The record is a 99-nucleotide RNA from Shewanella woodyi, which matches "c-di-GMP-I riboswitch aptamer" in Rfam.
[Rfam]
RNA sequence: CCAUGUAUUUGGCAAACUAGCUGAAAAGUUAGGACGCAAAGCUUCCGGUCUAAGGUGCAGGACUCACUGAGUGCUCAUUAAGAUAGCGGGGUUGCCACG
Numbered sequence: 001c002c003a004u005g006u007a008u009u010u011g012g013c014a015a016a017c018u019a020g021c022u023g024a025a026a027a028g029u030u031a032g033g034a035c036g037c038a039a040a041g042c043u044u045c046c047g048g049u050c051u052a053a054g055g056u057g058c059a060g061g062a063c064u065c066a067c068u069g070a071g072u073g074c075u076c077a078u079u080a081a082g083a084u085a086g087c088g089g090g091g092u093u094g095c096c097a098c099g
Stems, first nucleotide, its partner, number of pairs: 012037002017032006040093004045089003048084003055078003
NCBI's taxonomy places the organism under Bacteria, Alteromonadales, Shewanellaceae, Shewanella, Shewanella woodyi.
Pairs were carried over by alignment from the consensus structure, which is taken from published work.
It scores 70 bits against the family's covariance model.
Its family is annotated with cyclic-di-GMP binding in the Gene Ontology.